Rfam assigns this 96-nucleotide RNA sequence from a Syntrophaceae bacterium to the family "c-di-GMP-I-GGC riboswitch aptamer". The family is grouped with related families in Rfam's "c-di-GMP_I riboswitch clan". NCBI's taxonomy places the organism under Bacteria, Thermodesulfobacteriota, Syntrophia, Syntrophales, Syntrophaceae.
RNA sequence: GUCGAAAAAGCCAAACCACGAGUAAUCGUGGGGCGGAAAACCACGGGUCCCGGUGGAUUGACCAUUUUAAUUUCCGGGAUAGCCGGGUUGCCGAAG
Numbered sequence: 001g002u003c004g005a006a007a008a009a010g011c012c013a014a015a016c017c018a019c020g021a022g023u024a025a026u027c028g029u030g031g032g033g034c035g036g037a038a039a040a041c042c043a044c045g046g047g048u049c050c051c052g053g054u055g056g057a058u059u060g061a062c063c064a065u066u067u068u069a070a071u072u073u074c075c076g077g078g079a080u081a082g083c084c085g086g087g088u089u090g091c092c093g094a095a096g
Stems, first nucleotide, its partner, number of pairs: 003093002011036002016031006034082001039089004044085003047080007